[Rfam]
Source information
The record is a 57-nucleotide sequence from Citreimonas salinaria, which matches "sul1 RNA" in Rfam.
RNA sequence: ACUGGACCCGGCCGCAAUGCCGGGUGGCUCUUCCGGCCGCCGAUCCGCCGGACAACG
Numbered sequence: 001a002c003u004g005g006a007c008c009c010g011g012c013c014g015c016a017a018u019g020c021c022g023g024g025u026g027g028c029u030c031u032u033c034c035g036g037c038c039g040c041c042g043a044u045c046c047g048c049c050g051g052a053c054a055a056c057g
Stems, first nucleotide, its partner, number of pairs: 006025006013019001032052006